[Rfam]
RNA sequence: CUUUCUUACGCAUAAUAGACCACCUCUAUACAUUUUACUGUUCCUGUUGAAUUUGAAACAGGUAUAGAAAAACGUGUUAAAUAGUUUUUCAGUUCCUAUUAAAUUACAUUCUUAAAAGCACUACUCAACUUCAAUAAAAAAACCGUUGUUUGGAAAUGCUAUUCGUGCUGUAAAAAUAUAAAUCUCACUUUCAAAUGGCGGUUUAAUGGAGAUAAACGUCGCCAUGAGAUAUAUUA
Numbered sequence: 001c002u003u004u005c006u007u008a009c010g011c012a013u014a015a016u017a018g019a020c021c022a023c024c025u026c027u028a029u030a031c032a033u034u035u036u037a038c039u040g041u042u043c044c045u046g047u048u049g050a051a052u053u054u055g056a057a058a059c060a061g062g063u064a065u066a067g068a069a070a071a072a073c074g075u076g077u078u079a080a081a082u083a084g085u086u087u088u089u090c091a092g093u094u095c096c097u098a099u100u101a102a103a104u105u106a107c108a109u110u111c112u113u114a115a116a117a118g119c120a121c122u123a124c125u126c127a128a129c130u131u132c133a134a135u136a137a138a139a140a141a142a143c144c145g146u147u148g149u150u151u152g153g154a155a156a157u158g159c160u161a162u163u164c165g166u167g168c169u170g171u172a173a174a175a176a177u178a179u180a181a182a183u184c185u186c187a188c189u190u191u192c193a194a195a196u197g198g199c200g201g202u203u204u205a206a207u208g209g210a211g212a213u214a215a216a217c218g219u220c221g222c223c224a225u226g227a228g229a230u231a232u233a234u235u236a
Stems, first nucleotide, its partner, number of pairs: 002108001004106001007103001013101005028077004033072004038067004043062006078091001080089002119158002122155001124153002127150001128146002195219003201213004
RNA: Cis-regulator of HTH transcription factor
Organism: Clostridioides difficile